A member of the RNA family "sok antitoxin (CssrC)" from Kluyvera genomosp. 3, 153 nucleotides long. The base pairs follow the family's consensus structure, which is taken from published work. Rfam classes the family as an antitoxin RNA. Rfam describes the family as follows. Also identified in Shigella as CssrC.
RNA sequence: GGGUGCUUGAGACUGUUUGUCUCAGGUAUUCAUCGAAAGGCAGACAGAGAAAAGCCCCACCUGACUCUAAAUCAGAAUGAGGCCGCCUCUAUGCAUGAACACCAUAAGGGUAGCCUCUUACUUGUUGAAAAUCAACACAGGAGGCGAAGGAUG
Numbered sequence: 001g002g003g004u005g006c007u008u009g010a011g012a013c014u015g016u017u018u019g020u021c022u023c024a025g026g027u028a029u030u031c032a033u034c035g036a037a038a039g040g041c042a043g044a045c046a047g048a049g050a051a052a053a054g055c056c057c058c059a060c061c062u063g064a065c066u067c068u069a070a071a072u073c074a075g076a077a078u079g080a081g082g083c084c085g086c087c088u089c090u091a092u093g094c095a096u097g098a099a100c101a102c103c104a105u106a107a108g109g110g111u112a113g114c115c116u117c118u119u120a121c122u123u124g125u126u127g128a129a130a131a132u133c134a135a136c137a138c139a140g141g142a143g144g145c146g147a148a149g150g151a152u153g
Stems, first nucleotide, its partner, number of pairs: 001058003005055004013047010026034001059078001062075001063073002066070001079117005086110003090106004121144003125140002